[Rfam]
The family of this 109-nucleotide RNA sequence from Desulfonispora thiosulfatigenes is "TPP riboswitch aptamer (THI element)". A search with the family's covariance model found it, with a score of 72 bits. The family's consensus secondary structure is taken from published work. Taxonomically the source falls in Desulfonispora thiosulfatigenes (Bacteria, Bacillati, Bacillota, Clostridia). Vitamin B(1) in its active form thiamin pyrophosphate (TPP) is an essential coenzyme that is synthesised by coupling of pyrimidine and thiazole moieties in bacteria.
RNA sequence: UUACGGAACAAGGGGAACCUAUACUGAUAGGCUGAAAGUGAGAUGUUAUCUCUUACCCUUCGAACCUGAUUUGGUUAGUACCAACGUAGGGAUGUUCAGCGAUUAAUUU
Numbered sequence: 001u002u003a004c005g006g007a008a009c010a011a012g013g014g015g016a017a018c019c020u021a022u023a024c025u026g027a028u029a030g031g032c033u034g035a036a037a038g039u040g041a042g043a044u045g046u047u048a049u050c051u052c053u054u055a056c057c058c059u060u061c062g063a064a065c066c067u068g069a070u071u072u073g074g075u076u077a078g079u080a081c082c083a084a085c086g087u088a089g090g091g092a093u094g095u096u097c098a099g100c101g102a103u104u105a106a107u108u109u
Stems, first nucleotide, its partner, number of pairs: 006097005011059004016053001018031004040052004065090004071084004